[Rfam]
RNA sequence: AAACACAAAGAUAAAAACGCAACGUAAGAGCUUUUCUUACAGAGCCGGUAGGUAGCCCGGCCGCACCGUUUGGUGUAAGUAACCCUCCCUCCUUAGGGUCGUCCGUUCUUUGUUCAUCACAA
Numbered sequence: 001a002a003a004c005a006c007a008a009a010g011a012u013a014a015a016a017a018c019g020c021a022a023c024g025u026a027a028g029a030g031c032u033u034u035u036c037u038u039a040c041a042g043a044g045c046c047g048g049u050a051g052g053u054a055g056c057c058c059g060g061c062c063g064c065a066c067c068g069u070u071u072g073g074u075g076u077a078a079g080u081a082a083c084c085c086u087c088c089c090u091c092c093u094u095a096g097g098g099u100c101g102u103c104c105g106u107u108c109u110u111u112g113u114u115c116a117u118c119a120c121a122a
Stems, first nucleotide, its partner, number of pairs: 005113007044061005063076005087098003
RNA: azaaromatic riboswitch aptamer (yjdF RNA)
Organism: Lachnoclostridium sp. An14